[Rfam]
RNA sequence: GAAACAUGUGCAGGAGAGUGUUACACCUUGCUACACGGUGUGGCCACCGAAGGCGCAGAUGCCCUUAAAUCGCUCAGGUAAAAGGACUGCACAUUGAAA
Numbered sequence: 001g002a003a004a005c006a007u008g009u010g011c012a013g014g015a016g017a018g019u020g021u022u023a024c025a026c027c028u029u030g031c032u033a034c035a036c037g038g039u040g041u042g043g044c045c046a047c048c049g050a051a052g053g054c055g056c057a058g059a060u061g062c063c064c065u066u067a068a069a070u071c072g073c074u075c076a077g078g079u080a081a082a083a084g085g086a087c088u089g090c091a092c093a094u095u096g097a098a099a
Base pairs, nucleotide, nucleotide: 006094007093008092009091010090011089012088013087020044021043022042023041024040025039026038027037046079047078048077049075050074053073054072055071059066

Overview: This 99-nucleotide RNA from Neisseria animalis belongs to the Rfam family "Glycine riboswitch aptamer". About the family: This family represents the bacterial glycine riboswitch. The source organism's lineage runs through Bacteria, Betaproteobacteria, Neisseriales, Neisseriaceae and Neisseria.